[Rfam]
Notes: S15-Flavobacteria ribosomal protein leader: a 68-nucleotide RNA sequence from Aureitalea marina. The source organism's lineage runs through Bacteria, Pseudomonadati, Flavobacteriia, Flavobacteriaceae and Aureitalea. The base pairs follow the family's consensus structure, which is taken from published work. By type it is a cis-regulatory leader.

RNA sequence: UAUCUUUGCCGCUCGAUUACCACGAGGGUUAUCGGAUACAUAAAAAUCAUUUAAAUAAUAUUGGCAUG
Numbered sequence: 001u002a003u004c005u006u007u008g009c010c011g012c013u014c015g016a017u018u019a020c021c022a023c024g025a026g027g028g029u030u031a032u033c034g035g036a037u038a039c040a041u042a043a044a045a046a047u048c049a050u051u052u053a054a055a056u057a058a059u060a061u062u063g064g065c066a067u068g
Stems, first nucleotide, its partner, number of pairs: 014034004019029001